Rfam assigns this 237-nucleotide RNA from Monosporascus sp. MG133 to the family "Small nucleolar RNA snR191". The family is grouped with related families in Rfam's "SNORA74 clan".

[Rfam]
RNA sequence: CCCCAAUGCUUCCUGUCAGGACGCUUUCUACAUUCUUCGAUGGAAGAUCGUCUGUUACGUCAUUGGGAGAUUGAAAUUUCGAGCUUGCUGUUCCGACGUCGUUUUGACUAGGGACUGACUGGGUCCCGUUUUGGGGCACUGUCGUUAGCUCGAGUUUGUUUCAUUUUGAGUUGAAAUCUACCUCCGCCCGUUCCGGGUGGUUGGGUGGUAGAUUUCUUAGUAAUGAUUCAUACAUCU
Numbered sequence: 001c002c003c004c005a006a007u008g009c010u011u012c013c014u015g016u017c018a019g020g021a022c023g024c025u026u027u028c029u030a031c032a033u034u035c036u037u038c039g040a041u042g043g044a045a046g047a048u049c050g051u052c053u054g055u056u057a058c059g060u061c062a063u064u065g066g067g068a069g070a071u072u073g074a075a076a077u078u079u080c081g082a083g084c085u086u087g088c089u090g091u092u093c094c095g096a097c098g099u100c101g102u103u104u105u106g107a108c109u110a111g112g113g114a115c116u117g118a119c120u121g122g123g124u125c126c127c128g129u130u131u132u133g134g135g136g137c138a139c140u141g142u143c144g145u146u147a148g149c150u151c152g153a154g155u156u157u158g159u160u161u162c163a164u165u166u167u168g169a170g171u172u173g174a175a176a177u178c179u180a181c182c183u184c185c186g187c188c189c190g191u192u193c194c195g196g197g198u199g200g201u202u203g204g205g206u207g208g209u210a211g212a213u214u215u216c217u218u219a220g221u222a223a224u225g226a227u228u229c230a231u232a233c234a235u236c237u
Stems, first nucleotide, its partner, number of pairs: 003066005019053005024046005079153006088117001090115005098108003123137006157230002161226004173216004179210004184200007
Rfam classes the family as an H/ACA-box small nucleolar RNA.